The record is a 97-nucleotide RNA from Actinidia chinensis, which matches "small nucleolar RNA snoR117" in Rfam. The family has 6 seed sequences and 419 matches in Rfam 15.1. The literature on the family includes a 2009 paper in Nucleic Acids Res by Chen and Wu, "Mining small RNA sequencing data: a new approach to identify small nucleolar RNAs in Arabidopsis". NCBI's taxonomy places the organism under Eukaryota, Embryophyta, Gunneridae, Actinidia, Actinidia chinensis.
[Rfam]
RNA sequence: GGCCGAUGAUGCAUUGAGUUGUCUUGUCCGUACCAUCUGAGUGAUCAUUGUUCGAAUGACUUCCUCUGAUGAUUCAUCCCUCUAGAUUCUGAGGCCU
Numbered sequence: 001g002g003c004c005g006a007u008g009a010u011g012c013a014u015u016g017a018g019u020u021g022u023c024u025u026g027u028c029c030g031u032a033c034c035a036u037c038u039g040a041g042u043g044a045u046c047a048u049u050g051u052u053c054g055a056a057u058g059a060c061u062u063c064c065u066c067u068g069a070u071g072a073u074u075c076a077u078c079c080c081u082c083u084a085g086a087u088u089c090u091g092a093g094g095c096c097u
Stems, first nucleotide, its partner, number of pairs: 001096004